[Rfam]
RNA: Enterobacteria greA leader
Organism: Yersinia ruckeri
RNA sequence: GCCAUACUACGGUGCAACGAGGGCGAAAGUAAACGAUGACCCUAAAGGAACUCUACGUUAAAAUGUUUAUCAAAAUGCAAAAUUGAUCCAAGCUCGGGGUUUUUGCUCCGAGAGUGGUUUUUUU
Numbered sequence: 001g002c003c004a005u006a007c008u009a010c011g012g013u014g015c016a017a018c019g020a021g022g023g024c025g026a027a028a029g030u031a032a033a034c035g036a037u038g039a040c041c042c043u044a045a046a047g048g049a050a051c052u053c054u055a056c057g058u059u060a061a062a063a064u065g066u067u068u069a070u071c072a073a074a075a076u077g078c079a080a081a082a083u084u085g086a087u088c089c090a091a092g093c094u095c096g097g098g099g100u101u102u103u104u105g106c107u108c109c110g111a112g113a114g115u116g117g118u119u120u121u122u123u124u
Stems, first nucleotide, its partner, number of pairs: 001040001003038003010035002014030002041048002057071001059069002088117003093112006